[Rfam]
This 98-nucleotide RNA sequence belongs to the Rfam family "RAGATH-20 RNA". By type it is a small RNA.
RNA sequence: UCCUGAAUUGACAGGAAACAAACAAAUGUACGAUAGUGAGAACUAUUCAAUACUGGAGUUGGACUAGAAAACGUGCCACUGAUCAAGUGCCUAAGAUC
Numbered sequence: 001u002c003c004u005g006a007a008u009u010g011a012c013a014g015g016a017a018a019c020a021a022a023c024a025a026a027u028g029u030a031c032g033a034u035a036g037u038g039a040g041a042a043c044u045a046u047u048c049a050a051u052a053c054u055g056g057a058g059u060u061g062g063a064c065u066a067g068a069a070a071a072c073g074u075g076c077c078a079c080u081g082a083u084c085a086a087g088u089g090c091c092u093a094a095g096a097u098c
Stems, first nucleotide, its partner, number of pairs: 001016005017060003032048002034045004
Pairs were carried over by alignment from the consensus structure, which is taken from published work.